[Rfam]
RNA sequence: AGCUGUAAUGGCUCAACGGAAGAAACCAUUCCAAUCCUCCCGCCCACCCCUUCUGUUGGCAACAACUCAACCAUCGGUGCCCGGUUCGAAUCUCGUGGUGGCCACCCACUCGCACAGGUAACUUGCGAAUUGCUGCGUGUGGCCCUAAGACCGCUUGGACACCGCUUCAGCCGAGCAAUCGGGCAGAGCGACUAAGCCCAUGAGGUGGCGAGUCCGGACUACAUUGAUUGUUUGGUGGGGUGUGAGGGAGGAGUUGUGGGAUGGUGACCUUCUUUU
Numbered sequence: 001a002g003c004u005g006u007a008a009u010g011g012c013u014c015a016a017c018g019g020a021a022g023a024a025a026c027c028a029u030u031c032c033a034a035u036c037c038u039c040c041c042g043c044c045c046a047c048c049c050c051u052u053c054u055g056u057u058g059g060c061a062a063c064a065a066c067u068c069a070a071c072c073a074u075c076g077g078u079g080c081c082c083g084g085u086u087c088g089a090a091u092c093u094c095g096u097g098g099u100g101g102c103c104a105c106c107c108a109c110u111c112g113c114a115c116a117g118g119u120a121a122c123u124u125g126c127g128a129a130u131u132g133c134u135g136c137g138u139g140u141g142g143c144c145c146u147a148a149g150a151c152c153g154c155u156u157g158g159a160c161a162c163c164g165c166u167u168c169a170g171c172c173g174a175g176c177a178a179u180c181g182g183g184c185a186g187a188g189c190g191a192c193u194a195a196g197c198c199c200a201u202g203a204g205g206u207g208g209c210g211a212g213u214c215c216g217g218a219c220u221a222c223a224u225u226g227a228u229u230g231u232u233u234g235g236u237g238g239g240g241u242g243u244g245a246g247g248g249a250g251g252a253g254u255u256g257u258g259g260g261a262u263g264g265u266g267a268c269c270u271u272c273u274u275u276u
Stems, first nucleotide, its partner, number of pairs: 001013003018273005025265005032259001034257001036251006043244001045242005054064004068234003071230001073228007081217004086211003090206009100144001102142004106135001108130001110128005116123002145149001153197006163190005172181003
The family of this 276-nucleotide RNA sequence from Aureobasidium subglaciale is "Fungal signal recognition particle RNA".
On this family, see Batey et al., Science 2000: "Crystal structure of the ribonucleoprotein core of the signal recognition particle".
The source organism's lineage runs through Eukaryota, Fungi, Pezizomycotina, Saccotheciaceae and Aureobasidium subglaciale.
Pairs were carried over by alignment from the consensus structure, which is taken from published work.
The match comes from Rfam's covariance-model search (126 bits).